[Rfam]
RNA sequence: UGUCAUAAAUGCAUCCUUAUGACUGUUGAAUGGAACCGCAGAAACUGCUCGAACAGUUUUUGCGGUGUGGAUUAAGCAGGUCCUCCCCGGCCUGCUUUUU
Numbered sequence: 001u002g003u004c005a006u007a008a009a010u011g012c013a014u015c016c017u018u019a020u021g022a023c024u025g026u027u028g029a030a031u032g033g034a035a036c037c038g039c040a041g042a043a044a045c046u047g048c049u050c051g052a053a054c055a056g057u058u059u060u061u062g063c064g065g066u067g068u069g070g071a072u073u074a075a076g077c078a079g080g081u082c083c084u085c086c087c088c089g090g091c092c093u094g095c096u097u098u099u100u
Stems, first nucleotide, its partner, number of pairs: 002023007035066006044057004074097009
RNA: Antisense to pHK01_035